Shown here is a 104-nucleotide RNA from Paenibacillus mucilaginosus, a member of the family "Purine riboswitch aptamer". Rfam links the family to the GO term purine nucleobase biosynthetic process. Taxonomically the source falls in Paenibacillus mucilaginosus (Bacteria, Bacillati, Bacilli, Caryophanales). Riboswitches are metabolite binding domains within certain messenger RNAs that serve as precision sensors for their corresponding targets. Allosteric rearrangement of mRNA structure is mediated by ligand binding, and this results in modulation of gene expression. A class of riboswitches that selectively recognises guanine and becomes saturated at concentrations as low as 5 nM. In Bacillus subtilis, this mRNA motif is located on at least five separate transcriptional units that together encode 17 genes that are mostly involved in purine transport and purine nucleotide biosynthesis. It has also been shown that some members of this family are specific for adenine instead. Hence this family are termed purine riboswitches.
[Rfam]
RNA sequence: AACAAAUAACUUCAUAAGACUCGUAUAAUUUUGGGGAUAUGGCCCAUAAGUUUCUACCGGAUGACCAAUGCAAUCAUCCGACUAUGAGUGAAAGUCGCAGCGGU
Numbered sequence: 001a002a003c004a005a006a007u008a009a010c011u012u013c014a015u016a017a018g019a020c021u022c023g024u025a026u027a028a029u030u031u032u033g034g035g036g037a038u039a040u041g042g043c044c045c046a047u048a049a050g051u052u053u054c055u056a057c058c059g060g061a062u063g064a065c066c067a068a069u070g071c072a073a074u075c076a077u078c079c080g081a082c083u084a085u086g087a088g089u090g091a092a093a094g095u096c097g098c099a100g101c102g103g104u
Base pairs, nucleotide, nucleotide: 019089020088021087022086023085024084025083029049030048032046033045034044035043058080059079060078061077062076063075064074